[Rfam]
RNA sequence: CGAGUGGGUCGAGCGAUCGCCUGUCUUUUCCGCAUGGAAAAGAUGGGAGGAAAGUCCGAACUCCAGAGGGCAGAGCGCUGGGUAACCCCCAGGUGCCGUGAGGCAACGGAAAGUGCCACAGAAAACAGACCGCCGAAGUUUUCCCGUUUAUGCGGGAAAACAGGCAAGGGUGAAAAGGUAGUGUAAGAGACUACCGCACAGGGUGGCGACACCCUGUGGCACGGCAAACCCCGCUCGGAGAAAGACCAAGUAGGGAAGCAUCCACCCUAAGGGGUGGGCAGAUGGCCCGUCUGAUGCUUCCGGGUAGGUCGCAAGAGGCACCCAGCAAUGGGUGUCCCAGAUAAAUGAUCGCUCUCGACAGAAUUCGGCUUACAGACCCACUCGCUUC
Numbered sequence: 001c002g003a004g005u006g007g008g009u010c011g012a013g014c015g016a017u018c019g020c021c022u023g024u025c026u027u028u029u030c031c032g033c034a035u036g037g038a039a040a041a042g043a044u045g046g047g048a049g050g051a052a053a054g055u056c057c058g059a060a061c062u063c064c065a066g067a068g069g070g071c072a073g074a075g076c077g078c079u080g081g082g083u084a085a086c087c088c089c090c091a092g093g094u095g096c097c098g099u100g101a102g103g104c105a106a107c108g109g110a111a112a113g114u115g116c117c118a119c120a121g122a123a124a125a126c127a128g129a130c131c132g133c134c135g136a137a138g139u140u141u142u143c144c145c146g147u148u149u150a151u152g153c154g155g156g157a158a159a160a161c162a163g164g165c166a167a168g169g170g171u172g173a174a175a176a177g178g179u180a181g182u183g184u185a186a187g188a189g190a191c192u193a194c195c196g197c198a199c200a201g202g203g204u205g206g207c208g209a210c211a212c213c214c215u216g217u218g219g220c221a222c223g224g225c226a227a228a229c230c231c232c233g234c235u236c237g238g239a240g241a242a243a244g245a246c247c248a249a250g251u252a253g254g255g256a257a258g259c260a261u262c263c264a265c266c267c268u269a270a271g272g273g274g275u276g277g278g279c280a281g282a283u284g285g286c287c288c289g290u291c292u293g294a295u296g297c298u299u300c301c302g303g304g305u306a307g308g309u310c311g312c313a314a315g316a317g318g319c320a321c322c323c324a325g326c327a328a329u330g331g332g333u334g335u336c337c338c339a340g341a342u343a344a345a346u347g348a349u350c351g352c353u354c355u356c357g358a359c360a361g362a363a364u365u366c367g368g369c370u371u372a373c374a375g376a377c378c379c380a381c382u383c384g385c386u387u388c
Base pairs, nucleotide, nucleotide: 001384002383003382004381005380006379007378008377009376010375011373012353013352014351015350016349017348018347020047021046022045023044024043025042026041027040028039029038030037052371053370054369056368057367058366059365060364061240062239063238064237068288069287070286071285073236074235075234076233077232078092079091080090081089082088093107094105095104096103097102108231109230113229114228115225116224117223130169131168132165133164134163140160141159142158177195178194179193180192181191182190196220197218198217199216200215202214203212204211205210244310245309246308247307254301255300256299257298258297259296279293280292281291282290283289317336318335319334320333321332322331323330324329
RNA: Bacterial RNase P class A